Shown here is a 50-nucleotide RNA from Agrobacterium sp. AGB01, a member of the family "Guanidine-II riboswitch aptamer (mini-ykkC)". Lineage of the source: Bacteria > Pseudomonadota > Alphaproteobacteria > Rhizobiaceae > Agrobacterium. On this family, see Sherlock et al., Biochemistry 2017: "Biochemical Validation of a Second Guanidine Riboswitch Class in Bacteria". About the family: Simpler in structure and has fewer highly conserved nucleotide positions than the ykkC-yxkD leader. Despite this each of its two stem-loop structures directly bind free guanidine. Therefore, mini-ykkC RNA motif represents a distinct class of guanidine-sensing RNAs. Its crystal structure was also determined.
RNA sequence: AAGAGAGGACGGCCUCCCCCAUAACGGGAACAUUGAUCGGGACGACCCGG
Number, nucleotide and partner (000 for none) at each position: 001a000002a000003g018004a000005g016006a015007g014008g013009a000010c000011g000012g000013c008014c007015u006016c005017c000018c003019c000020c000021a000022u000023a000024a000025c000026g000027g000028g000029a000030a000031c000032a000033u000034u000035g000036a000037u050038c049039g048040g047041g046042a000043c000044g000045a000046c041047c040048c039049g038050g037